Annotation: Shown here is a 530-nucleotide part of an RNA from Candidatus Halobonum tyrrellensis, a member of the family "Archaeal large subunit ribosomal RNA". A search with the family's covariance model found it, with a score of 2808 bits. The family's consensus secondary structure is taken from published work. Its family is annotated with ribosome and structural constituent of ribosome in the Gene Ontology. The organism belongs to Candidatus Halobonum tyrrellensis, within Archaea.
RNA sequence: CUACUGUGCCAGCUGGUGGAUGGCUCGGCUCGAGAGCCGACGAAGGACGUGCCAAGCUGCGAUAAGCUCCGGGGACCCGCACGGAGGGUAAGAACCGGAGAUCUCCUAAUAGGAAUCCUCUCGCAAUUGCCUUGCGCAAUGGGGAACGCUCCGAAUUGAAACAUCUUAGUAGGAGCAGGAAGAGAAAGCAAACCGCGAUGUCGUGAGUAACGGCGAGUAAAAGCGAUACAGCCCAAACUGAAGCCCUCACGGGCGAUGUGGUGUUCGGGCUGGUAACAAGCGGUCCGUGGUUACGAGAAGUCUCCUGGAACGGAGCGCGAUACAGGGCGACAGCCCCGUACCGUACCCACGGUCCGCGGACCAGUUCCCAGAGUAGCGGGGAUCGGAUAUUCCUCGUGAACUUCCCAGGCAUCGACUGGGAAGGCUAAACACUCCUCGAGACCGAUAGCGAACAAGUAGCGUGAGCGAACGCUGAAAAGCACCCCGAGAAGGGCGGUGCAAUAGGGCCUGAAAUCAGUUGGCGAUGGAGC
Numbered sequence: 001c002u003a004c005u006g007u008g009c010c011a012g013c014u015g016g017u018g019g020a021u022g023g024c025u026c027g028g029c030u031c032g033a034g035a036g037c038c039g040a041c042g043a044a045g046g047a048c049g050u051g052c053c054a055a056g057c058u059g060c061g062a063u064a065a066g067c068u069c070c071g072g073g074g075a076c077c078c079g080c081a082c083g084g085a086g087g088g089u090a091a092g093a094a095c096c097g098g099a100g101a102u103c104u105c106c107u108a109a110u111a112g113g114a115a116u117c118c119u120c121u122c123g124c125a126a127u128u129g130c131c132u133u134g135c136g137c138a139a140u141g142g143g144g145a146a147c148g149c150u151c152c153g154a155a156u157u158g159a160a161a162c163a164u165c166u167u168a169g170u171a172g173g174a175g176c177a178g179g180a181a182g183a184g185a186a187a188g189c190a191a192a193c194c195g196c197g198a199u200g201u202c203g204u205g206a207g208u209a210a211c212g213g214c215g216a217g218u219a220a221a222a223g224c225g226a227u228a229c230a231g232c233c234c235a236a237a238c239u240g241a242a243g244c245c246c247u248c249a250c251g252g253g254c255g256a257u258g259u260g261g262u263g264u265u266c267g268g269g270c271u272g273g274u275a276a277c278a279a280g281c282g283g284u285c286c287g288u289g290g291u292u293a294c295g296a297g298a299a300g301u302c303u304c305c306u307g308g309a310a311c312g313g314a315g316c317g318c319g320a321u322a323c324a325g326g327g328c329g330a331c332a333g334c335c336c337c338g339u340a341c342c343g344u345a346c347c348c349a350c351g352g353u354c355c356g357c358g359g360a361c362c363a364g365u366u367c368c369c370a371g372a373g374u375a376g377c378g379g380g381g382a383u384c385g386g387a388u389a390u391u392c393c394u395c396g397u398g399a400a401c402u403u404c405c406c407a408g409g410c411a412u413c414g415a416c417u418g419g420g421a422a423g424g425c426u427a428a429a430c431a432c433u434c435c436u437c438g439a440g441a442c443c444g445a446u447a448g449c450g451a452a453c454a455a456g457u458a459g460c461g462u463g464a465g466c467g468a469a470c471g472c473u474g475a476a477a478a479g480c481a482c483c484c485c486g487a488g489a490a491g492g493g494c495g496g497u498g499c500a501a502u503a504g505g506g507c508c509u510g511a512a513a514u515c516a517g518u519u520g521g522c523g524a525u526g527g528a529g530c
Stems, first nucleotide, its partner, number of pairs: 007523010022508001023472002027443002029440006035433002044107004048061003067100006076088003111119003126140005147178001148176005158165002188196002200227005210218002230426004238261003243254004270364004280357004294343002300316001302315004319323001325337003376397007404420005459466002